[Rfam]
RNA sequence: AGCUGGUUUAUCUUUGUUGAUGAUUUCAAACAUAGUAUUCAUCAACGGGAGUAAACCAGCUCU
Numbered sequence: 001a002g003c004u005g006g007u008u009u010a011u012c013u014u015u016g017u018u019g020a021u022g023a024u025u026u027c028a029a030a031c032a033u034a035g036u037a038u039u040c041a042u043c044a045a046c047g048g049g050a051g052u053a054a055a056c057c058a059g060c061u062c063u
Stems, first nucleotide, its partner, number of pairs: 001061003005057005011050003015047008
Dot-bracket structure: (((.(((((.(((.((((((((.................)))))))))))..))))).)))..